Shown here is a 322-nucleotide sequence from Cepphus grylle, a member of the family "7SK RNA". It is annotated as a non-coding RNA gene. The family's consensus secondary structure is taken from published work. A search with the family's covariance model found it, with a score of 268 bits. For this family Rfam cites "Transcription: surprising role for an elusive small nuclear RNA" (Blencowe, Curr Biol, 2002).
RNA sequence: GGAUGUGAGGGCAAUCUGGCUGUGACAUCUGUCACCGUAUUGAUUGCCAGGGCUGAUCUGGCUGGCUAGGUGGGUGUCCCCUUCCCCCCUCACCGCUCCAUGUGCAUCCCUCCCAAAGCUGCAUGCUCAGCCGAAGAGGGCGACGACCUUUGCUGAUAGAGACAUACCAUUCGUUGGUCAAGGGUAUACAGUAGCUGCGCUCCCCUGCUAGAACCUCCAAACAAGCUCAAGGUCCAUUUGUAGGAGAACGCAGAGUAGUCAAGCUUCUAAGACUGCAGACACAUCCAAGUGAGGCACUGCAUGGGGCAGUGUGCGAUUGUUU
Numbered sequence: 001g002g003a004u005g006u007g008a009g010g011g012c013a014a015u016c017u018g019g020c021u022g023u024g025a026c027a028u029c030u031g032u033c034a035c036c037g038u039a040u041u042g043a044u045u046g047c048c049a050g051g052g053c054u055g056a057u058c059u060g061g062c063u064g065g066c067u068a069g070g071u072g073g074g075u076g077u078c079c080c081c082u083u084c085c086c087c088c089c090u091c092a093c094c095g096c097u098c099c100a101u102g103u104g105c106a107u108c109c110c111u112c113c114c115a116a117a118g119c120u121g122c123a124u125g126c127u128c129a130g131c132c133g134a135a136g137a138g139g140g141c142g143a144c145g146a147c148c149u150u151u152g153c154u155g156a157u158a159g160a161g162a163c164a165u166a167c168c169a170u171u172c173g174u175u176g177g178u179c180a181a182g183g184g185u186a187u188a189c190a191g192u193a194g195c196u197g198c199g200c201u202c203c204c205c206u207g208c209u210a211g212a213a214c215c216u217c218c219a220a221a222c223a224a225g226c227u228c229a230a231g232g233u234c235c236a237u238u239u240g241u242a243g244g245a246g247a248a249c250g251c252a253g254a255g256u257a258g259u260c261a262a263g264c265u266u267c268u269a270a271g272a273c274u275g276c277a278g279a280c281a282c283a284u285c286c287a288a289g290u291g292a293g294g295c296a297c298u299g300c301a302u303g304g305g306g307c308a309g310u311g312u313g314c315g316a317u318u319g320u321u322u
Stems, first nucleotide, its partner, number of pairs: 001099003005093007014083001018081002024078010035065002038060002042058004046053002110161003113130001116127001118126002132155002138149003194264003200258002203255001205253004215246004221241005287322003291317001294314002296310005